[Rfam]
RNA sequence: CAUCUUACCUGGCCCAAGAAAUACCAUGAUCAAGCAUUUAGUUUUCCCAGGCUGAGGCUCACCCAUUGUACUGCAGGUGUGCUGACUCCUAUAACUUUCCCAAAAUGGCAGAAGCUCGCGGUCAUAAUUUGUGACAGUGGGCAACUCAUCGCGCUCUCCCUG
Numbered sequence: 001c002a003u004c005u006u007a008c009c010u011g012g013c014c015c016a017a018g019a020a021a022u023a024c025c026a027u028g029a030u031c032a033a034g035c036a037u038u039u040a041g042u043u044u045u046c047c048c049a050g051g052c053u054g055a056g057g058c059u060c061a062c063c064c065a066u067u068g069u070a071c072u073g074c075a076g077g078u079g080u081g082c083u084g085a086c087u088c089c090u091a092u093a094a095c096u097u098u099c100c101c102a103a104a105a106u107g108g109c110a111g112a113a114g115c116u117c118g119c120g121g122u123c124a125u126a127a128u129u130u131g132u133g134a135c136a137g138u139g140g141g142c143a144a145c146u147c148a149u150c151g152c153g154c155u156c157u158c159c160c161u162g
Stems, first nucleotide, its partner, number of pairs: 012123001014121002018046004023042002026039001049090003054086001056083003060079004092118001094116001095114001096112002099108002139161003143157001144155001146153001

Overview: U1 spliceosomal RNA: a 162-nucleotide RNA sequence from Ursus americanus. About the family: U1 is a small nuclear RNA (snRNA) component of the spliceosome (involved in pre-mRNA splicing). Its 5' end forms complementary base pairs with the 5' splice junction, thus defining the 5' donor site of an intron. There are significant differences in sequence and secondary structure between metazoan and yeast U1 snRNAs, the latter being much longer (568 nucleotides as compared to 164 nucleotides in human). Nevertheless, secondary structure predictions suggest that all U1 snRNAs share a 'common core' consisting of helices I, II, the proximal region of III, and IV. This family does not contain the larger yeast sequences. Clan: U1 clan.